Rfam assigns this 56-nucleotide RNA from Cytobacillus kochii to the family "Bacillus-plasmid RNA". The organism belongs to Cytobacillus, within Bacteria. Rfam classes the family as a small RNA.

[Rfam]
RNA sequence: UCUGUCAACGGUAAGCGGACCGCAGGGAGCAUUAAGAAGUUGAUAGACUCACUAGA
Number, nucleotide and partner (000 for none) at each position: 001u047002c046003u045004g044005u043006c042007a041008a040009c039010g000011g000012u000013a000014a000015g000016c000017g000018g000019a000020c000021c000022g000023c000024a000025g000026g000027g000028a000029g000030c000031a000032u000033u000034a000035a000036g000037a000038a000039g009040u008041u007042g006043a005044u004045a003046g002047a001048c000049u000050c000051a000052c000053u000054a000055g000056a000